[Rfam]
RNA sequence: GGUGCUCUAGGCAUCACAUUUUCUCCAUGGGGUAUUCCCUACGCCGGCACUAUGUGUUGCUGGCGUUUUUUUAU
Numbered sequence: 001g002g003u004g005c006u007c008u009a010g011g012c013a014u015c016a017c018a019u020u021u022u023c024u025c026c027a028u029g030g031g032g033u034a035u036u037c038c039c040u041a042c043g044c045c046g047g048c049a050c051u052a053u054g055u056g057u058u059g060c061u062g063g064c065g066u067u068u069u070u071u072u073a074u
Stems, first nucleotide, its partner, number of pairs: 001015006029039004042065008
Shown here is a 74-nucleotide sequence from Escherichia coli, a member of the family "Enterohemorrhagic E. coli sRNA 41".
It is one of the family's seed sequences.
Gene Ontology term of the family: positive regulation of cell motility.
Rfam's curators write: Enhances cell motility in both enterohemorrhagic E.coli O157:H7 and nonpathogenic E. coli K12.